[Rfam]
RNA sequence: GCGGAAGGCUGGAUGGCCGCUGCGUCGGGGCGACCCGGCGGGGAGGAAAGUCCGGACUCCAAAAAGCAACGGUGCCGGGUAACGCCCGGGCAGGGCAACCUGACGGAAAGCGCCACAGAAAUGAAACCACCUGUCAUCAGGUCGGGCAACCGAAACCGAUGGCGGGAAAGGGUGAAACGGUGGGGUAAGAGCCCACCGCGCCGCUGGCAACAGCGGCGGCACGGCAAGCCCCACCGGGAGCAAUGCCAAAUAGGGAUCGCGUGUCGCAAGACAGGGCUGCUUUUGCCCCAGCAGAUCCGGGUUGGCAGCUAGAGCUCUGGAGGCAACUUCGGGGCAAGAGGAAUGGUCAUCGAUCCAGGGGCAUCCCUGGGGGACAGAAUCCGGCUUACAGGCCCUCCGCGCGC
Numbered sequence: 001g002c003g004g005a006a007g008g009c010u011g012g013a014u015g016g017c018c019g020c021u022g023c024g025u026c027g028g029g030g031c032g033a034c035c036c037g038g039c040g041g042g043g044a045g046g047a048a049a050g051u052c053c054g055g056a057c058u059c060c061a062a063a064a065a066g067c068a069a070c071g072g073u074g075c076c077g078g079g080u081a082a083c084g085c086c087c088g089g090g091c092a093g094g095g096c097a098a099c100c101u102g103a104c105g106g107a108a109a110g111c112g113c114c115a116c117a118g119a120a121a122u123g124a125a126a127c128c129a130c131c132u133g134u135c136a137u138c139a140g141g142u143c144g145g146g147c148a149a150c151c152g153a154a155a156c157c158g159a160u161g162g163c164g165g166g167a168a169a170g171g172g173u174g175a176a177a178c179g180g181u182g183g184g185g186u187a188a189g190a191g192c193c194c195a196c197c198g199c200g201c202c203g204c205u206g207g208c209a210a211c212a213g214c215g216g217c218g219g220c221a222c223g224g225c226a227a228g229c230c231c232c233a234c235c236g237g238g239a240g241c242a243a244u245g246c247c248a249a250a251u252a253g254g255g256a257u258c259g260c261g262u263g264u265c266g267c268a269a270g271a272c273a274g275g276g277c278u279g280c281u282u283u284u285g286c287c288c289c290a291g292c293a294g295a296u297c298c299g300g301g302u303u304g305g306c307a308g309c310u311a312g313a314g315c316u317c318u319g320g321a322g323g324c325a326a327c328u329u330c331g332g333g334g335c336a337a338g339a340g341g342a343a344u345g346g347u348c349a350u351c352g353a354u355c356c357a358g359g360g361g362c363a364u365c366c367c368u369g370g371g372g373g374a375c376a377g378a379a380u381c382c383g384g385c386u387u388a389c390a391g392g393c394c395c396u397c398c399g400c401g402c403g404c
Base pairs, nucleotide, nucleotide: 001400002399003398004397005396007394008393009392010391011389012351013350014349015348016347017346018345020043021042023040024039025038026037027036028035048387049386050385052384053383054382055381056380057240058239059238060237065283066282070236071235072234073233074232075089076088077087078086079085090104091102092101093100094099105231106230110229111228112225113224114223127171128170130166131165132164133163134162135161136160137159179197180196181195182194183193184192198220199218200217201216202215203214204213205212206211244307245306246305247304254298255297256296257295258294274288275287276286277285315334316333317332318331319330320329321328322327
This 404-nucleotide RNA from Roseobacter insulae belongs to the Rfam family "Bacterial RNase P class A". Rfam classes the family as a ribozyme. Ribonuclease P (RNase P) is a ubiquitous endoribonuclease, found in archaea, bacteria and eukarya as well as chloroplasts and mitochondria. The base pairs follow the family's consensus structure, which is taken from published work. The source organism's lineage runs through Bacteria, Pseudomonadati, Pseudomonadota, Roseobacteraceae and Roseobacter.